The family of this 82-nucleotide sequence from an Olavius algarvensis Gamma 3 endosymbiont is "tRNA". Rfam classes the family as a transfer RNA. Its Rfam clan is "tRNA clan".
[Rfam]
RNA sequence: GCCGAUGUGGUGGAAUUGGUAGACACGCUAUCUUGAGGGGGUAGUGGCGAAAGCUGUGCCGGUUCGACUCCGGCCAUCGGCA
Numbered sequence: 001g002c003c004g005a006u007g008u009g010g011u012g013g014a015a016u017u018g019g020u021a022g023a024c025a026c027g028c029u030a031u032c033u034u035g036a037g038g039g040g041g042u043a044g045u046g047g048c049g050a051a052a053g054c055u056g057u058g059c060c061g062g063u064u065c066g067a068c069u070c071c072g073g074c075c076a077u078c079g080g081c082a
Stems, first nucleotide, its partner, number of pairs: 001081007010026003028044005058074005